Shown here is a 52-nucleotide RNA sequence from Starkeya sp. ORNL1, a member of the family "ffh sRNA". It scores 53 bits against the family's covariance model. It is annotated as a small RNA. For this family Rfam cites "Identification of candidate structured RNAs in the marine organism 'Candidatus Pelagibacter ubique'" (Meyer et al., BMC Genomics, 2009). The family's consensus secondary structure is taken from published work.

RNA sequence: GAGACCGGAGGUUCCCGCCCGACAGCGCUGUGCGCCCUCGGGCGUUUUUCGG
Numbered sequence: 001g002a003g004a005c006c007g008g009a010g011g012u013u014c015c016c017g018c019c020c021g022a023c024a025g026c027g028c029u030g031u032g033c034g035c036c037c038u039c040g041g042g043c044g045u046u047u048u049u050c051g052g
Base pairs, nucleotide, nucleotide: 016044017043018042019041020040021039022038025035026034027033028032